RNA sequence: UUAAGGCAUACAAAGUUAACAACUUGCAUAUUUGAAGGAUUUGAAGACUUCAACUUUCAUACUUGGAGGAUUUGAAGAUUUCUACC
Numbered sequence: 001u002u003a004a005g006g007c008a009u010a011c012a013a014a015g016u017u018a019a020c021a022a023c024u025u026g027c028a029u030a031u032u033u034g035a036a037g038g039a040u041u042u043g044a045a046g047a048c049u050u051c052a053a054c055u056u057u058c059a060u061a062c063u064u065g066g067a068g069g070a071u072u073u074g075a076a077g078a079u080u081u082c083u084a085c086c
Base pairs, nucleotide, nucleotide: 001084004081005080006079009076011074012073013072014071017068020065021064025059026058028056032053033052034051035050036049037048